Rfam assigns this 209-nucleotide RNA sequence from Streptomyces collinus to the family "Streptomyces RNA 1601". Identified by deep sequencing of transcriptome at the end of exponential growth phase. The family's RNA type in Rfam is small RNA. NCBI's taxonomy places the organism under Bacteria, Actinomycetota, Actinomycetes, Kitasatosporales, Streptomyces collinus. On this family, see Vockenhuber et al., RNA Biol 2011: "Deep sequencing-based identification of small non-coding RNAs in Streptomyces coelicolor".
[Rfam]
RNA sequence: GUCGACCGGCCGGACACGUAUGUGCUCGGCCCACAAGUGGAGGCUCCGAUCUCCCACCUGACCGUCCUCCGGGGCGGCGGGUCAUCCGGUCAGACGGCCACCAUCGUUCCGUACGGACGAUGGAGCCGUCCGAAAGCGCGCCCCGCGAUCGUCGCGGCGGUGCUCCGGUUGCCAUGGAGCCCCGCCUGUGAUCGUCCGGGGCAUUUUUU
Number, nucleotide and partner (000 for none) at each position: 001g000002u000003c000004g091005a090006c089007c088008g087009g086010c000011c000012g027013g026014a000015c000016a000017c000018g000019u000020a000021u000022g000023u000024g000025c000026u013027c012028g083029g082030c081031c080032c079033a000034c060035a059036a000037g057038u056039g055040g054041a052042g051043g000044c000045u000046c000047c000048g000049a000050u000051c042052u041053c000054c040055c039056a038057c037058c000059u035060g034061a000062c077063c076064g075065u074066c073067c072068u000069c000070c000071g000072g067073g066074g065075c064076g063077g062078c000079g032080g031081g030082u029083c028084a000085u000086c009087c008088g007089g006090u005091c004092a000093g130094a129095c128096g000097g127098c000099c000100a000101c123102c122103a121104u120105c119106g118107u117108u000109c000110c000111g000112u000113a000114c000115g000116g000117a107118c106119g105120a104121u103122g102123g101124a000125g000126c000127c097128g095129u094130c093131c000132g000133a000134a000135a000136g000137c000138g000139c000140g202141c201142c200143c199144c198145g197146c194147g193148a192149u000150c000151g000152u000153c190154g189155c188156g186157g185158c184159g183160g182161u000162g180163c179164u178165c177166c176167g000168g000169u000170u000171g000172c000173c000174a000175u000176g166177g165178a164179g163180c162181c000182c160183c159184g158185c157186c156187u000188g155189u154190g153191a000192u148193c147194g146195u000196c000197c145198g144199g143200g142201g141202c140203a000204u000205u000206u000207u000208u000209u000